[Rfam]
RNA sequence: AUGUCUAAGAAACCAGGAGGGCCCGGAAAAAACCGGGCUGUCAAUAUG
Numbered sequence: 001a002u003g004u005c006u007a008a009g010a011a012a013c014c015a016g017g018a019g020g021g022c023c024c025g026g027a028a029a030a031a032a033c034c035g036g037g038c039u040g041u042c043a044a045u046a047u048g
Stems, first nucleotide, its partner, number of pairs: 017042002020039006
This 48-nucleotide RNA sequence from Orthoflavivirus nilense belongs to the Rfam family "Flavivirus capsid hairpin cHP". Clan: Flavivirus 5' UTR clan. Rfam's curators write: cHP is a conserved RNA hairpin structure identified within the capsid coding region of several Flavivirus genomes. These positive strand RNA genomes are translated as a single polypeptide and subsequently cleaved into constituent proteins, the first of which is the capsid protein. The cHP hairpin is located within the capsid coding region between two AUG start codons. The cHP cis element has been shown to direct translation start from the thermodynamically unstable first start codon. The ability of cHP to direct initiation from the first start codon is proportional to its thermodynamic stability, is position dependent, and is sequence independent. It has been demonstrated that both AUGs and the conserved cHP are necessary for efficient viral replication in human and mosquito cells. Taxonomically the source falls in Orthoflavivirus nilense (Viruses, Kitrinoviricota, Flasuviricetes, Orthoflavivirus). The literature on the family includes a 2006 paper in J Virol by Clyde and Harris, "RNA secondary structure in the coding region of dengue virus type 2 directs translation start codon selection and is required for viral replication".